Overview:
This 162-nucleotide RNA from Ancylostoma duodenale belongs to the Rfam family "U1 spliceosomal RNA". For this family Rfam cites "The uRNA database" (Zwieb, Nucleic Acids Res, 1997).
[Rfam]
RNA sequence: AAACUUACCUGGCUGGGGGCGUCUCGCGAUCAUCAAGGCGGAACCCCCAUGGUGAGGCCCGCGCAUUGCACUUUCGCCCGGGCUGACCCGUGUGGCAGUCUCGAACUGAGAUUCGCCAACAGCUAAAUUUUUGUGUGUGGGGCUGCGUACGCGCGGCCCUGA
Number, nucleotide and partner (000 for none) at each position: 001a000002a000003a000004c000005u000006u000007a000008c000009c000010u000011g000012g123013c122014u121015g120016g048017g047018g046019g045020c000021g000022u000023c000024u041025c040026g039027c038028g000029a000030u000031c000032a000033u000034c000035a000036a000037g000038g027039c026040g025041g024042a000043a000044c000045c019046c018047c017048c016049a091050u090051g089052g088053u000054g087055a000056g084057g083058c082059c000060c080061g079062c000063g077064c076065a000066u000067u000068g000069c000070a000071c000072u000073u000074u000075c000076g064077c063078c000079c061080g060081g000082g058083c057084u056085g000086a000087c054088c052089c051090g050091u049092g000093u118094g117095g116096c115097a113098g112099u000100c110101u109102c000103g000104a000105a000106c000107u000108g000109a101110g100111a000112u098113u097114c000115g096116c095117c094118a093119a000120c015121a014122g013123c012124u000125a000126a000127a000128u000129u000130u000131u000132u000133g000134u000135g000136u000137g000138u161139g160140g159141g158142g157143c000144u155145g154146c153147g152148u000149a000150c000151g000152c147153g146154c145155g144156g000157c142158c141159c140160u139161g138162a000
A search with the family's covariance model found it, with a score of 114 bits.